Shown here is a 104-nucleotide RNA sequence from Heliobacterium mobile, a member of the family "Glycine riboswitch aptamer".

[Rfam]
RNA sequence: UGACGAAACUCUGGAGAGACCCUGCGAUACAGGGCGCCGAAGGGGCAAAGCGGUUUGUAAAAAAGCCGUCCAAAUCUCUCAGGCAAAAGGACAGAGUAAUUAAU
Dot-bracket structure: .......((((((......((((.......)))).(((((..(((....(...................).....))))).))).......)))))).......
Numbered sequence: 001u002g003a004c005g006a007a008a009c010u011c012u013g014g015a016g017a018g019a020c021c022c023u024g025c026g027a028u029a030c031a032g033g034g035c036g037c038c039g040a041a042g043g044g045g046c047a048a049a050g051c052g053g054u055u056u057g058u059a060a061a062a063a064a065g066c067c068g069u070c071c072a073a074a075u076c077u078c079u080c081a082g083g084c085a086a087a088a089g090g091a092c093a094g095a096g097u098a099a100u101u102a103a104u
Stems, first nucleotide, its partner, number of pairs: 008097006020034004036084003039080002043078003050070001
Gene Ontology term of the family: glycine biosynthetic process. It scores 66 bits against the family's covariance model.